[Rfam]
The record is a 106-nucleotide RNA sequence from Lotus japonicus, which matches "Small nucleolar RNA Z152/R70/R12/" in Rfam. The family's consensus secondary structure was predicted with PFOLD. Rfam's curators put it in the seed alignment. The organism belongs to Lotus, within Eukaryota. For this family Rfam cites "Identification of 66 box C/D snoRNAs in Arabidopsis thaliana: extensive gene duplications generated multiple isoforms predicting new ribosomal RNA 2'-O-methylation sites" (Barneche et al., J Mol Biol, 2001). Gene Ontology terms of the family: RNA processing and nucleolus.
Nucleotides: 106
Base pairs, nucleotide, nucleotide: 001106002105003104004103005102
Number, partner (000 for none) and nucleotide at each position: 001106g002105g003104u004103g005102c006000a007000a008000u009000g010000a011000u012000g013000a014000g015000a016000u017000a018000a019000a020000a021000c022000a023000c024000u025000c026000u027000a028000u029000g030000u031000g032000u033000a034000u035000u036000g037000g038000g039000c040000a041000g042000u043000g044000g045000a046000c047000g048000u049000u050000a051000c052000c053000a054000u055000c056000a057000g058000g059000u060000u061000u062000c063000g064000c065000c066000g067000u068000g069000a070000g071000c072000c073000u074000a075000a076000u077000a078000u079000u080000a081000a082000a083000c084000g085000a086000c087000u088000u089000c090000u091000c092000c093000u094000u095000c096000c097000a098000c099000u100000g101000a102005g103004c104003a105002c106001u